Rfam assigns this 290-nucleotide sequence from Deltacoronavirus HNU1-2 to the family "Deltacoronavirus 5'UTR". From the family's description: The 5'UTR of deltacoronaviruses is similar to the 5'UTRs of alpha- and betacoronaviruses, as they also contain three helices denoted as SL1, SL2 and SL4. SL1 and SL2 have major impacts of the level of viral replication, whereas SL4 is hypothesized to play a role as a 'spacer' during the template-switch of CoV sgRNA synthesis. Further, predictions show a conserved fourth stem-loop (SL3) between SL2 and SL4, sometimes observed in beta- and gammacoronaviruses as well. SL3 usually exposes the TRS-L sequence, which is crucial for sgRNA synthesis during viral replication, in the loop region. A search with the family's covariance model found it, with a score of 116 bits.
[Rfam]
RNA sequence: GACUAAAGGUAAAAUAUAUUGCAUAUGCAGUAUAGUUUAUCUCCCUAGCUUCGCUAGUUCGCUACCGACACCAAUCCAGGUGCUUUUGCCAUAGACUCGCUGCGUCUCCGGACGGCGUGGCUUCGGCCUCGUUUUGUUCACCAUUAGACUAUCCAGGCACCAACCACAAAGGUUGGAGUUACCCUGGACUCUUUUGUGUGGGCAUCGGCGGUUCUUUGGUUUUUGCACAACUUUAAAGUUUAGUUUUGGUUCCUCUGACCAUUGACCACCUCUAUAGACAGCACGGACUA
Number, nucleotide and partner (000 for none) at each position: 001g000002a000003c000004u000005a000006a000007a042008g041009g040010u039011a038012a037013a036014a000015u034016a033017u032018a031019u000020u029021g028022c027023a000024u000025a000026u000027g022028c021029a020030g000031u018032a017033u016034a015035g000036u013037u012038u011039a010040u009041c008042u007043c000044c000045c057046u056047a055048g054049c053050u000051u000052c000053g049054c048055u047056a046057g045058u000059u000060c000061g000062c000063u000064a000065c000066c000067g083068a000069c082070a081071c080072c079073a000074a000075u000076c000077c000078a000079g072080g071081u070082g069083c067084u000085u000086u000087u000088g000089c000090c000091a000092u000093a000094g000095a000096c000097u000098c000099g000100c000101u000102g000103c000104g000105u000106c000107u000108c000109c000110g000111g000112a000113c000114g000115g000116c000117g000118u000119g000120g000121c000122u000123u000124c000125g000126g000127c000128c000129u000130c000131g000132u000133u000134u204135u000136g000137u201138u200139c000140a000141c000142c000143a000144u000145u000146a192147g191148a190149c000150u000151a000152u000153c000154c000155a000156g000157g000158c000159a000160c176161c175162a174163a173164c172165c171166a000167c000168a000169a000170a000171g165172g164173u163174u162175g161176g160177a000178g000179u000180u000181a000182c000183c000184c000185u000186g000187g000188a000189c000190u148191c147192u146193u000194u000195u000196g000197u000198g000199u000200g138201g137202g000203c000204a134205u000206c000207g000208g000209c000210g000211g000212u000213u000214c000215u000216u000217u000218g000219g000220u000221u000222u000223u000224u000225g000226c000227a000228c000229a000230a000231c000232u000233u000234u000235a000236a000237a000238g000239u000240u000241u000242a000243g000244u000245u000246u000247u000248g000249g000250u000251u000252c000253c000254u000255c000256u000257g000258a000259c000260c000261a000262u000263u000264g000265a000266c000267c000268a000269c000270c000271u000272c000273u000274a000275u000276a000277g000278a000279c000280a000281g000282c000283a000284c000285g000286g000287a000288c000289u000290a000

Annotation:
Clan: Coronavirus 5' UTR. By type it is a cis-regulatory element. Gene Ontology term of the family: viral RNA genome replication.